[Rfam]
RNA sequence: CUGUCUCCUGCUUCAACAAUAUUUGGAUGGAACAG
Numbered sequence: 001c002u003g004u005c006u007c008c009u010g011c012u013u014c015a016a017c018a019a020u021a022u023u024u025g026g027a028u029g030g031a032a033c034a035g
Base pairs, nucleotide, nucleotide: 001035002034003033004032006031007030008029010028012027013026014025015024016023
RNA: Iron response element I